[Rfam]
RNA sequence: AUGGAUCUUCGGGGUAAGGUGAAAUUCCUGACCGGCGGUGAAUGGUUCGAUCAGCACAUAGCGAUUGAAUCACAGCCCGCGACUCGCUGUCUGUCCUGUAGGACGAUAGCGACUGAUCUGGUGCAAAUCCAGAGCCGACGGUAAAGUCCGGAUGGGAGAAGAUCAAU
Numbered sequence: 001a002u003g004g005a006u007c008u009u010c011g012g013g014g015u016a017a018g019g020u021g022a023a024a025u026u027c028c029u030g031a032c033c034g035g036c037g038g039u040g041a042a043u044g045g046u047u048c049g050a051u052c053a054g055c056a057c058a059u060a061g062c063g064a065u066u067g068a069a070u071c072a073c074a075g076c077c078c079g080c081g082a083c084u085c086g087c088u089g090u091c092u093g094u095c096c097u098g099u100a101g102g103a104c105g106a107u108a109g110c111g112a113c114u115g116a117u118c119u120g121g122u123g124c125a126a127a128u129c130c131a132g133a134g135c136c137g138a139c140g141g142u143a144a145a146g147u148c149c150g151g152a153u154g155g156g157a158g159a160a161g162a163u164c165a166a167u
Stems, first nucleotide, its partner, number of pairs: 004164007017029003031147002033137002035080004075135002084112006117133005139150003